[Rfam]
The family of this 227-nucleotide RNA sequence from Iocasia frigidifontis is "T-box leader".
RNA sequence: AUUAAAUCAUUGAACAGGAAUAUUAGGUAUGUUUUGCUGAAAAAAGAGAGCUAAUGGUAGGUGAAAAUUAGCCAGCAGACUGCUGAAUCCACCUGGGAGUGAUAUAGUGAAAGUAGAGUAGUUAUAUCCGGGUCUGUCCGUUACAACAGCUGAGUGGUUUUAUAGUAUAUUGUAAGCGAUAGGAUCAUAAGGGUGGCACCGCGGGAAGUUAACUCCUCGUCCCUUCA
Numbered sequence: 001a002u003u004a005a006a007u008c009a010u011u012g013a014a015c016a017g018g019a020a021u022a023u024u025a026g027g028u029a030u031g032u033u034u035u036g037c038u039g040a041a042a043a044a045a046g047a048g049a050g051c052u053a054a055u056g057g058u059a060g061g062u063g064a065a066a067a068u069u070a071g072c073c074a075g076c077a078g079a080c081u082g083c084u085g086a087a088u089c090c091a092c093c094u095g096g097g098a099g100u101g102a103u104a105u106a107g108u109g110a111a112a113g114u115a116g117a118g119u120a121g122u123u124a125u126a127u128c129c130g131g132g133u134c135u136g137u138c139c140g141u142u143a144c145a146a147c148a149g150c151u152g153a154g155u156g157g158u159u160u161u162a163u164a165g166u167a168u169a170u171u172g173u174a175a176g177c178g179a180u181a182g183g184a185u186c187a188u189a190a191g192g193g194u195g196g197c198a199c200c201g202c203g204g205g206a207a208g209u210u211a212a213c214u215c216c217u218c219g220u221c222c223c224u225u226c227a
Stems, first nucleotide, its partner, number of pairs: 008099001015095004026084004037075003050072006102127007129140003157185007190224004201220005

Uncharged tRNA acts as the effector for transcription antitermination of genes in the T-box leader family. By type it is a cis-regulatory leader. The base pairs follow the family's consensus structure, which is taken from published work. Taxonomically the source falls in Iocasia (Bacteria, Bacillota, Clostridia, Halanaerobiaceae).